Rfam assigns this 95-nucleotide sequence to the family "SAM-I/IV (S-adenosyl methionine) riboswitch aptamer". Rfam's curators put it in the seed alignment. A reference for the family is Weinberg et al. (2008), "The aptamer core of SAM-IV riboswitches mimics the ligand-binding site of SAM-I riboswitches", RNA. Rfam links the family to the GO terms regulation of gene expression and S-adenosylmethionine metabolic process. The family's consensus secondary structure is taken from published work.
[Rfam]
RNA sequence: ACAUUACAUUUUGAGAGGGUUAAAACCCUGCCAACCUGCAUAACCUUGCGAAGGUGGUAUUAUGAUGUGGCUUAUAAGCAAAAAAAAGGUCCUUU
Numbered sequence: 001a002c003a004u005u006a007c008a009u010u011u012u013g014a015g016a017g018g019g020u021u022a023a024a025a026c027c028c029u030g031c032c033a034a035c036c037u038g039c040a041u042a043a044c045c046u047u048g049c050g051a052a053g054g055u056g057g058u059a060u061u062a063u064g065a066u067g068u069g070g071c072u073u074a075u076a077a078g079c080a081a082a083a084a085a086a087a088g089g090u091c092c093u094u095u
Stems, first nucleotide, its partner, number of pairs: 006068005015029001017028004030058003035054003038049003043090004070079003